This 150-nucleotide sequence from Pseudomonas sp. TAD18 belongs to the Rfam family "PrrF RNA". Its family is annotated with sRNA-mediated gene silencing in the Gene Ontology. Taxonomically the source falls in Pseudomonas (Bacteria, Pseudomonadati, Pseudomonadota, Pseudomonadales). On this family, see Wilderman et al., Proc Natl Acad Sci U S A 2004: "Identification of tandem duplicate regulatory small RNAs in Pseudomonas aeruginosa involved in iron homeostasis". The family has 18 seed sequences and 107 matches in Rfam 15.1. By type it is a small RNA. Rfam's curators write: PrrF RNA is a small RNA involved in iron homeostasis and is found exclusively in Pseudomonas species.

RNA sequence: UUGCUUUGCAAAUGAUAAUGAUUACUAUUGCAUGCAGCUGGUCGCGAGAUCAGCCGAUCAUUCAAGGGACCUUAGGUCGGUUCUUUGAAUAAUCUCCUCAUCAGGCUAAUCACGGUUAUUUGACCCGGCUUCUGGCCGGGUCUUUUUUUU
Numbered sequence: 001u002u003g004c005u006u007u008g009c010a011a012a013u014g015a016u017a018a019u020g021a022u023u024a025c026u027a028u029u030g031c032a033u034g035c036a037g038c039u040g041g042u043c044g045c046g047a048g049a050u051c052a053g054c055c056g057a058u059c060a061u062u063c064a065a066g067g068g069a070c071c072u073u074a075g076g077u078c079g080g081u082u083c084u085u086u087g088a089a090u091a092a093u094c095u096c097c098u099c100a101u102c103a104g105g106c107u108a109a110u111c112a113c114g115g116u117u118a119u120u121u122g123a124c125c126c127g128g129c130u131u132c133u134g135g136c137c138g139g140g141u142c143u144u145u146u147u148u149u150u
Stems, first nucleotide, its partner, number of pairs: 035056001037054007062088007070079001096105003122142008
Annotation: The base pairs follow the family's consensus structure, which is taken from published work.